[Rfam]
RNA: SAH (S-adenosyl-L-homocysteine) riboswitch aptamer
Organism: Luteimonas salinisoli
RNA sequence: UCCGCCGAGGGGCGCUGCGACCGGCCGCCUGCGCAUUCAUGCGUAGGCGACGCACGGCCAGGCUCGGCGGGUUCCACGCAUCAACGGCGCCCGGUUGCC
Numbered sequence: 001u002c003c004g005c006c007g008a009g010g011g012g013c014g015c016u017g018c019g020a021c022c023g024g025c026c027g028c029c030u031g032c033g034c035a036u037u038c039a040u041g042c043g044u045a046g047g048c049g050a051c052g053c054a055c056g057g058c059c060a061g062g063c064u065c066g067g068c069g070g071g072u073u074c075c076a077c078g079c080a081u082c083a084a085c086g087g088c089g090c091c092c093g094g095u096u097g098c099c
Stems, first nucleotide, its partner, number of pairs: 002070007021057003026052001